[Rfam]
RNA sequence: GUUGAAGCUCCAUCUCUAAAUGGAUAAGACUUCUGUCUUAGUGUAUACGAGUUUUUGAAAAUAAAGGAGCAAUAACCAAUUUCUUGUUCUCUCACGAGGGUUGGUAUUGCUCCUUUAU
Numbered sequence: 001g002u003u004g005a006a007g008c009u010c011c012a013u014c015u016c017u018a019a020a021u022g023g024a025u026a027a028g029a030c031u032u033c034u035g036u037c038u039u040a041g042u043g044u045a046u047a048c049g050a051g052u053u054u055u056u057g058a059a060a061a062u063a064a065a066g067g068a069g070c071a072a073u074a075a076c077c078a079a080u081u082u083c084u085u086g087u088u089c090u091c092u093c094a095c096g097a098g099g100g101u102u103g104g105u106a107u108u109g110c111u112c113c114u115u116u117a118u
Stems, first nucleotide, its partner, number of pairs: 009024005063116012078101001081098003085094001
Dot-bracket structure: ........(((((......)))))......................................((((((((((((...(..(((.(........).)))..)...))))))))))))..